This 111-nucleotide RNA sequence from Bacteroides thetaiotaomicron belongs to the Rfam family "Bacteroides sRNA BTnc049". It is annotated as a small RNA. Taxonomically the source falls in Bacteroides thetaiotaomicron (Bacteria, Pseudomonadati, Bacteroidia, Bacteroidales). The family's consensus secondary structure is taken from published work. A reference for the family is Ryan et al. (2020), "A high-resolution transcriptome map identifies small RNA regulation of metabolism in the gut microbe Bacteroides thetaiotaomicron", Nat Commun.

RNA sequence: GAACAGAAAGGGAUUGUGAAAUUCCAAGAAUAGAAUAGUUUAGUUAAGUCUAGUUUAGUUUUUGUGUUGAGUGCUUCCUCGUCGGCGGACGAUCUAGGAAGCACUUUUUAU
Numbered sequence: 001g002a003a004c005a006g007a008a009a010g011g012g013a014u015u016g017u018g019a020a021a022u023u024c025c026a027a028g029a030a031u032a033g034a035a036u037a038g039u040u041u042a043g044u045u046a047a048g049u050c051u052a053g054u055u056u057a058g059u060u061u062u063u064g065u066g067u068u069g070a071g072u073g074c075u076u077c078c079u080c081g082u083c084g085g086c087g088g089a090c091g092a093u094c095u096a097g098g099a100a101g102c103a104c105u106u107u108u109u110a111u
Stems, first nucleotide, its partner, number of pairs: 003065005010025006037056002040053004071104009080091003